The family of this 28-nucleotide RNA sequence is "L31-Firmicutes ribosomal protein leader". By type it is a cis-regulatory leader.
RNA sequence: CUAUGACUAUUUGUCAUGGCGGAAGGAG
Numbered sequence: 001c002u003a004u005g006a007c008u009a010u011u012u013g014u015c016a017u018g019g020c021g022g023a024a025g026g027a028g
Stems, first nucleotide, its partner, number of pairs: 001019007
Dot-bracket structure: (((((((.....))))))).........
On this family, see Eckert and Weinberg, BMC Microbiol 2020: "Discovery of 20 novel ribosomal leader candidates in bacteria and archaea". Clan: Ribosomal Protein L31 Leader clan.